Small nucleolar RNA U49: a 69-nucleotide RNA from Mikania micrantha. Its family is annotated with nucleolus and RNA processing in the Gene Ontology. It is annotated as a C/D-box small nucleolar RNA. The base pairs follow the family's consensus structure, which was predicted with CMfinder. Clan: SNORD49 clan. A reference for the family is Brown et al. (2001), "Multiple snoRNA gene clusters from Arabidopsis", RNA. It scores 59 bits against the family's covariance model.
[Rfam]
RNA sequence: UUCCGGUGAGGAAGAACUCCCUAACAAAGAUAGGAAGUGCCGUAUGACACUUUAAACCGCAGCGGAUCA
Numbered sequence: 001u002u003c004c005g006g007u008g009a010g011g012a013a014g015a016a017c018u019c020c021c022u023a024a025c026a027a028a029g030a031u032a033g034g035a036a037g038u039g040c041c042g043u044a045u046g047a048c049a050c051u052u053u054a055a056a057c058c059g060c061a062g063c064g065g066a067u068c069a
Stems, first nucleotide, its partner, number of pairs: 014063001034053006
Dot-bracket structure: .............(...................((((((........)))))).........)......